[Rfam]
RNA: Editing element of GABA-3 exon 9
RNA sequence: AAAGUAGCAUAUGCCACUGCAAUGGAUUGGUUCAUCGCUGUCUGCUAUGCCUUU
Numbered sequence: 001a002a003a004g005u006a007g008c009a010u011a012u013g014c015c016a017c018u019g020c021a022a023u024g025g026a027u028u029g030g031u032u033c034a035u036c037g038c039u040g041u042c043u044g045c046u047a048u049g050c051c052u053u054u
Base pairs, nucleotide, nucleotide: 001054002053003052007050008049010047011046013045014044016041017040019038020037022035023034024033025032026031